The record is a 76-nucleotide sequence from Drosophila melanogaster, which matches "mir-965 microRNA precursor family" in Rfam. Lineage of the source: Eukaryota > Muscomorpha > Ephydroidea > Drosophilini > Sophophora. The literature on the family includes a 2012 paper in Bioorg Khim by Huang et al., "The regulation of silkworm fibroin L chain production by miRNA-965 and miRNA-1926 in insect cells".

RNA sequence: AUUUUGGGGGGUAAAACUGUACGUUAUAUGUGCCCUUCUGUGAUAUUCAUAAGCGUAUAGCUUUUCCCCUUAAAAG
Numbered sequence: 001a002u003u004u005u006g007g008g009g010g011g012u013a014a015a016a017c018u019g020u021a022c023g024u025u026a027u028a029u030g031u032g033c034c035c036u037u038c039u040g041u042g043a044u045a046u047u048c049a050u051a052a053g054c055g056u057a058u059a060g061c062u063u064u065u066c067c068c069c070u071u072a073a074a075a076g
Base pairs, nucleotide, nucleotide: 003074004073005072006071007070009068010067011066013064014063017060018059019058020057021056024053025052027051028050029049030048
Dot-bracket structure: ..(((((.(((.((..(((((..((.((((.................))))))..)))))..)).))).)))))..